[Rfam]
RNA sequence: CUAACUGGUAAUACAAUCACCCACUCUGUUCUAAUCAGUGUGAAAACUGGUUUCCCGACUUUUAGUUGGGUCUUUAUCACAUUCACUUCUGGAACUUCCGAGAAUGCUAGCUUGCUAGUUUUUCUUGGAACGGUCUCCGGGACCUUUCACCUCCAUGAGGGAUUGCAUCUGC
Numbered sequence: 001c002u003a004a005c006u007g008g009u010a011a012u013a014c015a016a017u018c019a020c021c022c023a024c025u026c027u028g029u030u031c032u033a034a035u036c037a038g039u040g041u042g043a044a045a046a047c048u049g050g051u052u053u054c055c056c057g058a059c060u061u062u063u064a065g066u067u068g069g070g071u072c073u074u075u076a077u078c079a080c081a082u083u084c085a086c087u088u089c090u091g092g093a094a095c096u097u098c099c100g101a102g103a104a105u106g107c108u109a110g111c112u113u114g115c116u117a118g119u120u121u122u123u124c125u126u127g128g129a130a131c132g133g134u135c136u137c138c139g140g141g142a143c144c145u146u147u148c149a150c151c152u153c154c155a156u157g158a159g160g161g162a163u164u165g166c167a168u169c170u171g172c
Stems, first nucleotide, its partner, number of pairs: 033052006054070007098128007107118004131165006138157002141154001
Source information:
U2 spliceosomal RNA: a 172-nucleotide RNA sequence from Phytophthora palmivora. The family's consensus secondary structure is taken from published work. Clan: U2 clan. Rfam 15.1 lists 71,512 matches to the family in 2,642 species. The organism belongs to Phytophthora, within Eukaryota.